This 116-nucleotide RNA from Virgibacillus phasianinus belongs to the Rfam family "PyrR binding site". For this family Rfam cites "Molecular recognition of pyr mRNA by the Bacillus subtilis attenuation regulatory protein PyrR" (Bonner et al., Nucleic Acids Res, 2001). Pairs were carried over by alignment from the consensus structure, which is taken from published work. It scores 65 bits against the family's covariance model. The source organism's lineage runs through Bacteria, Bacillota, Caryophanales, Bacillaceae and Virgibacillus. From the family's description: This family represents the PyrR binding site and terminator structure. This RNA structure is found upstream of a variety of genes involved in pyrimidine biosynthesis and transport. The alignment also includes a portion of the antiterminator structure.
RNA sequence: AAUUCCUUUAAUACGGUCCAGAGAGGCUGAAAAGGGUGGUAUAAGCUAAACAUUGAUAAUGGUAUAUCUACGGAUAUUUAUGCCCUUUUGUCCUCUAUGACAAAAGGGCAUUUCUU
Dot-bracket structure: ...((((((....(((((......))))).)))))).......((.((..(.(.(((........))).).)..)).))(((((((((((((......))))))))))))).....